RNA sequence: GUCCGUCGGCCGCCGUACCUACUGCACAGCCAGGACGGGGGUGGGGGACCCAUCUCUCGGUGCCCGGCCGGUCCGGCCGGGCACCUCGGGGUGAAGCCGUGUGCGCACGGCCGGGGCACCGAUCGCUCCGAACCCGACAGCUCACCUCGCAGGCGGCGGAUCGGGAGUCC
Numbered sequence: 001g002u003c004c005g006u007c008g009g010c011c012g013c014c015g016u017a018c019c020u021a022c023u024g025c026a027c028a029g030c031c032a033g034g035a036c037g038g039g040g041g042u043g044g045g046g047g048a049c050c051c052a053u054c055u056c057u058c059g060g061u062g063c064c065c066g067g068c069c070g071g072u073c074c075g076g077c078c079g080g081g082c083a084c085c086u087c088g089g090g091g092u093g094a095a096g097c098c099g100u101g102u103g104c105g106c107a108c109g110g111c112c113g114g115g116g117c118a119c120c121g122a123u124c125g126c127u128c129c130g131a132a133c134c135c136g137a138c139a140g141c142u143c144a145c146c147u148c149g150c151a152g153g154c155g156g157c158g159g160a161u162c163g164g165g166a167g168u169c170c
Stems, first nucleotide, its partner, number of pairs: 011155004018040003041150006051088001089135003097110004113129004